[Rfam]
Record summary:
Rfam assigns this 83-nucleotide RNA from Cryptotermes secundus to the family "mir-31 microRNA precursor family". The literature on the family includes a 2003 paper in Dev Cell by Aravin et al., "The small RNA profile during Drosophila melanogaster development". NCBI's taxonomy places the organism under Eukaryota, Eumetazoa, Arthropoda, Polyneoptera, Cryptotermes. Its Rfam clan is "mir-31 microRNA precursor family". A search with the family's covariance model found it, with a score of 58 bits.

RNA sequence: GGAGGUAGAGAAGGCAAGAUGUCGGCAUAGCUGAUAUGAUGUUAGAAUUCCGGCUGUGUCACAUCAAGCCAACUUUCACUUCC
Numbered sequence: 001g002g003a004g005g006u007a008g009a010g011a012a013g014g015c016a017a018g019a020u021g022u023c024g025g026c027a028u029a030g031c032u033g034a035u036a037u038g039a040u041g042u043u044a045g046a047a048u049u050c051c052g053g054c055u056g057u058g059u060c061a062c063a064u065c066a067a068g069c070c071a072a073c074u075u076u077c078a079c080u081u082c083c
Base pairs, nucleotide, nucleotide: 007076008075009074010073013070014069015068018065019064020063021062024060025059026058027057028056029055030054031053